RNA sequence: ACACGAGGAAGGAGGUGGUCUGAAGUUGAAUGACAAACGGACACGUGAGGUGGCUGUCCGCUAGCCACGAUGCUUUUCGGGUUCACUGACCGCAGCGCGGCUGGCGAAUCCCAGACAGCUACCCGACCCCCGAGCCCUCCGGCCACGUCCAGGCCGGAACUCCACGAACGACGAAACCCCCGGGCUUCGUCACGUGGACGGGCCCGGGGGUCGCUGUCG
Numbered sequence: 001a002c003a004c005g006a007g008g009a010a011g012g013a014g015g016u017g018g019u020c021u022g023a024a025g026u027u028g029a030a031u032g033a034c035a036a037a038c039g040g041a042c043a044c045g046u047g048a049g050g051u052g053g054c055u056g057u058c059c060g061c062u063a064g065c066c067a068c069g070a071u072g073c074u075u076u077u078c079g080g081g082u083u084c085a086c087u088g089a090c091c092g093c094a095g096c097g098c099g100g101c102u103g104g105c106g107a108a109u110c111c112c113a114g115a116c117a118g119c120u121a122c123c124c125g126a127c128c129c130c131c132g133a134g135c136c137c138u139c140c141g142g143c144c145a146c147g148u149c150c151a152g153g154c155c156g157g158a159a160c161u162c163c164a165c166g167a168a169c170g171a172c173g174a175a176a177c178c179c180c181c182g183g184g185c186u187u188c189g190u191c192a193c194g195u196g197g198a199c200g201g202g203c204c205c206g207g208g209g210g211u212c213g214c215u216g217u218c219g
Base pairs, nucleotide, nucleotide: 014058015057016056017055018054019053059106060105061104062103063102064101065100068097069096071094072093073092124213125212126211127210128209129208130207131206132205134203135202136201139157140156141155142154143153144152
The family of this 219-nucleotide RNA sequence from Rhodococcus (subgen. Prescottella) equi is "Actinobacteria sRNA Ms_IGR-5".
Pairs were carried over by alignment from the consensus structure.
Rfam classes the family as a small RNA.
A search with the family's covariance model found it, with a score of 125 bits.
Taxonomically the source falls in Rhodococcus (subgen. Prescottella) equi (Bacteria, Mycobacteriales, Rhodococcus, Rhodococcus (subgen. Prescottella)).